Annotation
This 71-nucleotide RNA from Halorientalis sp. IM1011 belongs to the Rfam family "tRNA". Rfam classes the family as a transfer RNA. Rfam links the family to the GO term triplet codon-amino acid adaptor activity. The family's consensus secondary structure is taken from published work.
RNA sequence: UGCGGGAUAGGGUAGCGGUAGCCCACGGGGCUCAUAUCCCCGAGGCCCAGGUUCGACUCCUGGUCCCGCAA
Numbered sequence: 001u002g003c004g005g006g007a008u009a010g011g012g013u014a015g016c017g018g019u020a021g022c023c024c025a026c027g028g029g030g031c032u033c034a035u036a037u038c039c040c041c042g043a044g045g046c047c048c049a050g051g052u053u054c055g056a057c058u059c060c061u062g063g064u065c066c067c068g069c070a071a
Stems, first nucleotide, its partner, number of pairs: 001070007010024004026042005047063005